[Rfam]
RNA sequence: CGGACGGGACGGCCCGUUCGAAACACUGAACACGAGGACGACCUC
Numbered sequence: 001c002g003g004a005c006g007g008g009a010c011g012g013c014c015c016g017u018u019c020g021a022a023a024c025a026c027u028g029a030a031c032a033c034g035a036g037g038a039c040g041a042c043c044u045c
Stems, first nucleotide, its partner, number of pairs: 001020008034045004

The record is a 45-nucleotide sequence from Paeniglutamicibacter gangotriensis, which matches "Guanidine-II riboswitch aptamer (mini-ykkC)" in Rfam. Pairs were carried over by alignment from the consensus structure, which is taken from published work. The organism belongs to Paeniglutamicibacter gangotriensis, within Bacteria.